[Rfam]
RNA sequence: UAGUCAGUGAAAGUCUGACCGUGGUAAUUGCCAGAAAGCCAUGUAGCAGGCUCCCAGUGCAUGGGGUGACCCAAUGUGCUGAAGCGGAGUAACCUCCUGAGAAAGGAGAGCAAAAUAACAGUCCGUAACAUAA
Numbered sequence: 001u002a003g004u005c006a007g008u009g010a011a012a013g014u015c016u017g018a019c020c021g022u023g024g025u026a027a028u029u030g031c032c033a034g035a036a037a038g039c040c041a042u043g044u045a046g047c048a049g050g051c052u053c054c055c056a057g058u059g060c061a062u063g064g065g066g067u068g069a070c071c072c073a074a075u076g077u078g079c080u081g082a083a084g085c086g087g088a089g090u091a092a093c094c095u096c097c098u099g100a101g102a103a104a105g106g107a108g109a110g111c112a113a114a115a116u117a118a119c120a121g122u123c124c125g126u127a128a129c130a131u132a133a
Base pairs, nucleotide, nucleotide: 020043021042022041023040024039050090051089052088053087054086055081056080057079058078059077060076064071065070094108095107096106097105098104110126111125
Shown here is a 133-nucleotide RNA from Desulfuribacillus alkaliarsenatis, a member of the family "Group II catalytic intron D1-D4-4". Rfam links the family to the GO term Group II intron splicing. On this family, see Bonen and Vogel, Trends Genet 2001: "The ins and outs of group II introns". The base pairs follow the family's consensus structure. Rfam 15.1 lists 840 matches to the family in 506 species. Group II introns are found in rRNA, tRNA and mRNA of organelles in fungi, plants and protists, and also in mRNA in bacteria. The match comes from Rfam's covariance-model search (86 bits).